The record is a 70-nucleotide RNA from Agrilus planipennis, which matches "mir-34 microRNA precursor family" in Rfam.
The source organism's lineage runs through Eukaryota, Arthropoda, Insecta, Neoptera and Agrilus.
Rfam describes the family as follows. Human mir-34a was discovered computationally and later experimentally verified.
Its family is annotated with miRNA-mediated post-transcriptional gene silencing and RISC complex in the Gene Ontology.
RNA sequence: CGCAUAAUGGCAGUGUGGUUAGCUGGUUGUGCAAUUCAUACACGACCACUAACCAUACUACCCUUGUGAU
Numbered sequence: 001c002g003c004a005u006a007a008u009g010g011c012a013g014u015g016u017g018g019u020u021a022g023c024u025g026g027u028u029g030u031g032c033a034a035u036u037c038a039u040a041c042a043c044g045a046c047c048a049c050u051a052a053c054c055a056u057a058c059u060a061c062c063c064u065u066g067u068g069a070u
Stems, first nucleotide, its partner, number of pairs: 003068004009062002012059011024048008